Notes: A member of the RNA family "Plant small nucleolar RNA U3" from Castanea mollissima, 212 nucleotides long. Rfam 15.1 lists 3,759 matches to the family in 258 species. NCBI's taxonomy places the organism under Eukaryota, Embryophyta, Tracheophyta, Fagaceae, Castanea. A reference for the family is Speckmann et al. (1999), "Nuclear retention elements of U3 small nucleolar RNA", Mol Cell Biol. The family is grouped with related families in Rfam's "U3 clan". The base pairs follow the family's consensus structure, which is taken from published work. From the family's description: Small nucleolar RNAs (snoRNAs) are involved in the processing and modification of rRNA in the nucleolus. There are two main classes of snoRNAs: the box C/D class, and the box H/ACA class. U3 snoRNA is a member of the box C/D class. Indeed, the box C/D element is a subset of the six short sequence elements found in all U3 snoRNAs, namely boxes A, A', B, C, C', and D. The U3 snoRNA secondary structure is characterised by a small 5' domain (with boxes A and A'), and a larger 3' domain (with boxes B, C, C', and D), the two domains being linked by a single-stranded hinge.
RNA sequence: GCUACCUUACUUGAACAGGACCUGUUCUAUAGGUUGUACCUCUGUGUCCUUGAUCACUAAGGAGACAGGAUCCCAAGUCUGGUGAUUGAAUCAAGACCGUGUGAUCAUAGUGUGAUUAAUAGCCUUAUGAUCUGUGGAUUAAUGCGGCAGUAGAUGAUCAUUCUCAGUCAGUGAACACUGGUUGGGAUGGUCAUGCGGUUGUCUGACAGACC
Numbered sequence: 001g002c003u004a005c006c007u008u009a010c011u012u013g014a015a016c017a018g019g020a021c022c023u024g025u026u027c028u029a030u031a032g033g034u035u036g037u038a039c040c041u042c043u044g045u046g047u048c049c050u051u052g053a054u055c056a057c058u059a060a061g062g063a064g065a066c067a068g069g070a071u072c073c074c075a076a077g078u079c080u081g082g083u084g085a086u087u088g089a090a091u092c093a094a095g096a097c098c099g100u101g102u103g104a105u106c107a108u109a110g111u112g113u114g115a116u117u118a119a120u121a122g123c124c125u126u127a128u129g130a131u132c133u134g135u136g137g138a139u140u141a142a143u144g145c146g147g148c149a150g151u152a153g154a155u156g157a158u159c160a161u162u163c164u165c166a167g168u169c170a171g172u173g174a175a176c177a178c179u180g181g182u183u184g185g186g187a188u189g190g191u192c193a194u195g196c197g198g199u200u201g202u203c204u205g206a207c208a209g210a211c212c
Stems, first nucleotide, its partner, number of pairs: 001037002005033003013027006042068004047063006077211005096199012109162004119151002122148003126144002128141005164185009